Record summary: This 100-nucleotide sequence from Todus mexicanus belongs to the Rfam family "Small nucleolar RNA SNORD16". The family's consensus secondary structure was predicted with PFOLD. The source organism's lineage runs through Eukaryota, Deuterostomia, Tetrapoda, Dinosauria and Todus. The family is grouped with related families in Rfam's "SNORD16 clan". A reference for the family is Huttenhofer et al. (2001), "RNomics: an experimental approach that identifies 201 candidates for novel, small, non-messenger RNAs in mouse", EMBO J. It scores 95 bits against the family's covariance model.
RNA sequence: UGCCAUGAUGUCGUAAUUUGCGUCCUACUCUGCACGCAGUGACAGUUGCCUGCUGUCAGUGAACUGCUGCAGGUGGCUGACGAACCGUUACCGCUGAGCG
Numbered sequence: 001u002g003c004c005a006u007g008a009u010g011u012c013g014u015a016a017u018u019u020g021c022g023u024c025c026u027a028c029u030c031u032g033c034a035c036g037c038a039g040u041g042a043c044a045g046u047u048g049c050c051u052g053c054u055g056u057c058a059g060u061g062a063a064c065u066g067c068u069g070c071a072g073g074u075g076g077c078u079g080a081c082g083a084a085c086c087g088u089u090a091c092c093g094c095u096g097a098g099c100g
Base pairs, nucleotide, nucleotide: 001100002099003098021082022081023080024079030072031071032070033069034068039064040063041057042056043055044054045053